RNA sequence: ACAACAUCUGGUCCGUCGGUCUACCGACCAAUAUUUAACCAGCUCGGUGGAAGAUCUUCCCUUUGUCGU
Numbered sequence: 001a002c003a004a005c006a007u008c009u010g011g012u013c014c015g016u017c018g019g020u021c022u023a024c025c026g027a028c029c030a031a032u033a034u035u036u037a038a039c040c041a042g043c044u045c046g047g048u049g050g051a052a053g054a055u056c057u058u059c060c061c062u063u064u065g066u067c068g069u
Stems, first nucleotide, its partner, number of pairs: 004066003010060002015055003020051008029042001
RNA: mir-2774 microRNA precursor family
Organism: Bombyx mori